This 138-nucleotide sequence from Carlito syrichta belongs to the Rfam family "Small nucleolar RNA SNORA42/SNORA80 family". A search with the family's covariance model found it, with a score of 84 bits. Taxonomically the source falls in Carlito (Eukaryota, Eumetazoa, Deuterostomia, Eutheria). About the family: The members of this family belong to the H/ACA class of snoRNAs that guide the sites of modification of uridines to pseudouridines. Human ACA42 (SNORA42) was cloned from HeLa cells by immunoprecipitation with anti-GAR1 antibody. The literature on the family includes a 2006 paper in RNA by Schattner et al., "A computational screen for mammalian pseudouridylation guide H/ACA RNAs". The family's consensus secondary structure was predicted with RNAalifold. Its family is annotated with nucleolus and RNA processing in the Gene Ontology.
RNA sequence: GUUUAUUGAAACUUGGAUUUAUGACUGGCCUGUCCCUCUGGGCUUUUCAGAGUACCCCAGACCAGAGUAGACUGUCCUCGAAUCAUUGCCUGGCCUCUGUGCCCAUAGACUGCUGGCACUGAAGUGGGUUACACAGUG
Numbered sequence: 001g002u003u004u005a006u007u008g009a010a011a012c013u014u015g016g017a018u019u020u021a022u023g024a025c026u027g028g029c030c031u032g033u034c035c036c037u038c039u040g041g042g043c044u045u046u047u048c049a050g051a052g053u054a055c056c057c058c059a060g061a062c063c064a065g066a067g068u069a070g071a072c073u074g075u076c077c078u079c080g081a082a083u084c085a086u087u088g089c090c091u092g093g094c095c096u097c098u099g100u101g102c103c104c105a106u107a108g109a110c111u112g113c114u115g116g117c118a119c120u121g122a123a124g125u126g127g128g129u130u131a132c133a134c135a136g137u138g
Stems, first nucleotide, its partner, number of pairs: 001062004008056001019052002022049003027044002029041002073131002076128003084121002089116002091112003095108002